The family of this 94-nucleotide sequence from a Eubacteriaceae bacterium is "SAM riboswitch aptamer (S box leader)".
[Rfam]
RNA sequence: AACCUAUCUAGAGCGGCGGAGGGAAAGGCCCAAUGAAGCCCGGCAACCAGCAAAAGUAUGGUGCUAAUACCUUCAGGAAACUGAAUGAUGGGAU
Number, nucleotide and partner (000 for none) at each position: 001a094002a000003c092004c091005u090006a089007u088008c087009u000010a000011g000012a000013g041014c000015g040016g039017c038018g000019g000020a000021g031022g030023g029024a000025a073026a072027g071028g070029c023030c022031c021032a000033a000034u000035g000036a000037a000038g017039c016040c015041c013042g065043g064044c063045a062046a000047c061048c060049a057050g000051c000052a000053a000054a000055a000056g000057u049058a000059u000060g048061g047062u045063g044064c043065u042066a000067a000068u000069a086070c028071c027072u026073u025074c083075a082076g081077g000078a000079a000080a000081c076082u075083g074084a000085a000086u069087g008088a007089u006090g005091g004092g003093a000094u001

Source information:
Taxonomically the source falls in Eubacteriaceae (Bacteria, Bacillota, Clostridia, Eubacteriales).